U11 spliceosomal RNA: a 127-nucleotide RNA sequence from Hibiscus trionum. The family's consensus secondary structure is taken from published work. Taxonomically the source falls in Hibiscus (Eukaryota, Embryophyta, malvids, Malvoideae). The match comes from Rfam's covariance-model search (76 bits).
RNA sequence: UAAAAGGGUCGGUUGGCUAAAUAUGCCACGCCCACCCUCGUUUGGUGGGUGCUGUAUGGCUAUCAAGACAUAUGGCCGACAUAAUUUGUGGAGCCCAAUAGGGUUGGCUAGCUCGGCCGACCCUUCA
Numbered sequence: 001u002a003a004a005a006g007g008g009u010c011g012g013u014u015g016g017c018u019a020a021a022u023a024u025g026c027c028a029c030g031c032c033c034a035c036c037c038u039c040g041u042u043u044g045g046u047g048g049g050u051g052c053u054g055u056a057u058g059g060c061u062a063u064c065a066a067g068a069c070a071u072a073u074g075g076c077c078g079a080c081a082u083a084a085u086u087u088g089u090g091g092a093g094c095c096c097a098a099u100a101g102g103g104u105u106g107g108c109u110a111g112c113u114c115g116g117c118c119g120a121c122c123c124u125u126c127a
Stems, first nucleotide, its partner, number of pairs: 008080005014028004029051008052075007098125001101122001103121007